[Rfam]
RNA sequence: AGCCGCGUGGUGAGCACAAAGCGAACUAUUCUUUCGCCUUUUACUAAAGAAUACCGUGUGCUCGCCACUUAUAGUGGCAUACGCCUAUUUUUGGAGGGUUUCAUUCAGUUGGAACCC
Numbered sequence: 001a002g003c004c005g006c007g008u009g010g011u012g013a014g015c016a017c018a019a020a021g022c023g024a025a026c027u028a029u030u031c032u033u034u035c036g037c038c039u040u041u042u043a044c045u046a047a048a049g050a051a052u053a054c055c056g057u058g059u060g061c062u063c064g065c066c067a068c069u070u071a072u073a074g075u076g077g078c079a080u081a082c083g084c085c086u087a088u089u090u091u092u093g094g095a096g097g098g099u100u101u102c103a104u105u106c107a108g109u110u111g112g113a114a115c116c117c
Stems, first nucleotide, its partner, number of pairs: 003077004008067011027053008097116006
RNA: U5 spliceosomal RNA